[Rfam]
This 145-nucleotide RNA sequence from a Chloroflexales bacterium belongs to the Rfam family "FMN riboswitch aptamer (RFN element)". Taxonomically the source falls in Chloroflexales (Bacteria, Bacillati, Chloroflexota, Chloroflexia). The family's consensus secondary structure is taken from published work. A reference for the family is Serganov et al. (2009), "Coenzyme recognition and gene regulation by a flavin mononucleotide riboswitch", Nature.
RNA sequence: UAGGACCUUUGGGGCAGGGUGAAACUCCCUACCGGCGGUAAUACCCUGGCUGCGCAAGCAGGCGGGGCUAGCCCGAGAGCCGCAAGGCAGGACUCUGGUGUGAUUCCAGGGCCGACGGUCACAGUCCGGAUGAAUGAAGGUCCGC
Numbered sequence: 001u002a003g004g005a006c007c008u009u010u011g012g013g014g015c016a017g018g019g020u021g022a023a024a025c026u027c028c029c030u031a032c033c034g035g036c037g038g039u040a041a042u043a044c045c046c047u048g049g050c051u052g053c054g055c056a057a058g059c060a061g062g063c064g065g066g067g068c069u070a071g072c073c074c075g076a077g078a079g080c081c082g083c084a085a086g087g088c089a090g091g092a093c094u095c096u097g098g099u100g101u102g103a104u105u106c107c108a109g110g111g112c113c114g115a116c117g118g119u120c121a122c123a124g125u126c127c128g129g130a131u132g133a134a135u136g137a138a139g140g141u142c143c144g145c
Stems, first nucleotide, its partner, number of pairs: 003143008017029003031125002033114002036075003071112002079088003094110005116128003
Gene Ontology term of the family: FMN binding.